RNA sequence: ACCUUAGGUAGAGGUGCUAUAUAUAAUUAGUACUUAUUAUGAGUUGGCAAACAUUGAUUAAUAAGGAAAGGUAAUAUGGCCGAAGAUUUAAAUUAUGCAAAAAUUUAUUUCUGGGUAUGCAUAAAAUAUAUGUAUGACUGUCACGAAAGUGGAGAGCUAACAAGGAU
Numbered sequence: 001a002c003c004u005u006a007g008g009u010a011g012a013g014g015u016g017c018u019a020u021a022u023a024u025a026a027u028u029a030g031u032a033c034u035u036a037u038u039a040u041g042a043g044u045u046g047g048c049a050a051a052c053a054u055u056g057a058u059u060a061a062u063a064a065g066g067a068a069a070g071g072u073a074a075u076a077u078g079g080c081c082g083a084a085g086a087u088u089u090a091a092a093u094u095a096u097g098c099a100a101a102a103a104u105u106u107a108u109u110u111c112u113g114g115g116u117a118u119g120c121a122u123a124a125a126a127u128a129u130a131u132g133u134a135u136g137a138c139u140g141u142c143a144c145g146a147a148a149g150u151g152g153a154g155a156g157c158u159a160a161c162a163a164g165g166a167u
Stems, first nucleotide, its partner, number of pairs: 007161001009159003016080007024073002033065007084112003089107006113139002116136008141152004
The record is a 167-nucleotide RNA from Clostridium saccharoperbutylacetonicum, which matches "Lysine riboswitch aptamer" in Rfam. Pairs were carried over by alignment from the consensus structure, which is taken from published work. Lineage of the source: Bacteria > Bacillota > Clostridia > Clostridiaceae > Clostridium saccharoperbutylacetonicum N1-4. A search with the family's covariance model found it, with a score of 91 bits.